Source information
This 98-nucleotide RNA belongs to the Rfam family "DUF3800-V RNA". Pairs were carried over by alignment from the consensus structure, which is taken from published work.

[Rfam]
RNA sequence: AAAUGUUGAGCGGUAAGACCGUUGUAGGUUCUUCCGGCGUUCCCAUCCAUCGGUUGGCUAAGCCGGGGGGUAACAAGCCUACAGGGCACGCUCUUUUU
Numbered sequence: 001a002a003a004u005g006u007u008g009a010g011c012g013g014u015a016a017g018a019c020c021g022u023u024g025u026a027g028g029u030u031c032u033u034c035c036g037g038c039g040u041u042c043c044c045a046u047c048c049a050u051c052g053g054u055u056g057g058c059u060a061a062g063c064c065g066g067g068g069g070g071u072a073a074c075a076a077g078c079c080u081a082c083a084g085g086g087c088a089c090g091c092u093c094u095u096u097u098u
Stems, first nucleotide, its partner, number of pairs: 001098003005094001010091002025081005030075001032068007043057003047053002